RNA sequence: GUGGGUUGGUUAUCAGUCCUGAUAACUGGUGACUUUUUAGUCACCAGUUU
Numbered sequence: 001g002u003g004g005g006u007u008g009g010u011u012a013u014c015a016g017u018c019c020u021g022a023u024a025a026c027u028g029g030u031g032a033c034u035u036u037u038u039a040g041u042c043a044c045c046a047g048u049u050u
Stems, first nucleotide, its partner, number of pairs: 001019001003017001007015002024049010